[Rfam]
RNA: mir-263 microRNA precursor family
Organism: Photinus pyralis
RNA sequence: CUGGCCUGCGAAUGGCACUGGAAGAAUUCACGGGGUACUUUAAACUUCUCGUGGACUUUGAGUGCCAUCCUCAAAGUCAG
Number, nucleotide and partner (000 for none) at each position: 001c000002u000003g078004g077005c076006c000007u074008g000009c000010g071011a000012a068013u067014g066015g065016c064017a063018c000019u061020g000021g059022a057023a000024g056025a000026a000027u000028u054029c053030a052031c051032g050033g049034g000035g000036u000037a000038c000039u000040u000041u000042a000043a000044a000045c000046u000047u000048c000049u033050c032051g031052u030053g029054g028055a000056c024057u022058u000059u021060g000061a019062g000063u017064g016065c015066c014067a013068u012069c000070c000071u010072c000073a000074a007075a000076g005077u004078c003079a000080g000